The record is a 102-nucleotide RNA from Gracilibacillus halophilus, which matches "Purine riboswitch aptamer" in Rfam.

RNA sequence: AAUCGAAAAGCACAUUGCCUUCAUAUAUGUUUGGGAAUAAGGCCUGAACGUUUCUACCUGAACACCUUAAAUGUUCGGACUAUGAAGGCAGAAGUCCCGUUU
Numbered sequence: 001a002a003u004c005g006a007a008a009a010g011c012a013c014a015u016u017g018c019c020u021u022c023a024u025a026u027a028u029g030u031u032u033g034g035g036a037a038u039a040a041g042g043c044c045u046g047a048a049c050g051u052u053u054c055u056a057c058c059u060g061a062a063c064a065c066c067u068u069a070a071a072u073g074u075u076c077g078g079a080c081u082a083u084g085a086a087g088g089c090a091g092a093a094g095u096c097c098c099g100u101u102u
Stems, first nucleotide, its partner, number of pairs: 018088008029049007058078007
Dot-bracket structure: .................((((((((...(((((((.......)))))))........(((((((.......)))))))..))))))))..............

The literature on the family includes a 2003 paper in Cell by Mandal et al., "Riboswitches Control Fundamental Biochemical Pathways in Bacillus subtilis and Other Bacteria". The family has 133 seed sequences and 4,097 matches in Rfam 15.1. The base pairs follow the family's consensus structure, which is taken from published work.